[Rfam]
RNA sequence: CCCUUGGACUAUCAUAUCAAACCAAAGUAGGUUUAUACCAAAAUGGGAUAGGUUGAACAGGGAA
Numbered sequence: 001c002c003c004u005u006g007g008a009c010u011a012u013c014a015u016a017u018c019a020a021a022c023c024a025a026a027g028u029a030g031g032u033u034u035a036u037a038c039c040a041a042a043a044u045g046g047g048a049u050a051g052g053u054u055g056a057a058c059a060g061g062g063a064a
Stems, first nucleotide, its partner, number of pairs: 001062004009051005022046003030039003
The record is a 64-nucleotide sequence from Gottschalkia purinilytica, which matches "RAGATH-18 RNA" in Rfam.
From the family's description: Actinobacteria, Firmicutes, Fusobacteria, Thermotogae (1 example).
Taxonomically the source falls in Gottschalkia (Bacteria, Bacillati, Tissierellia, Tissierellales).
By type it is a small RNA.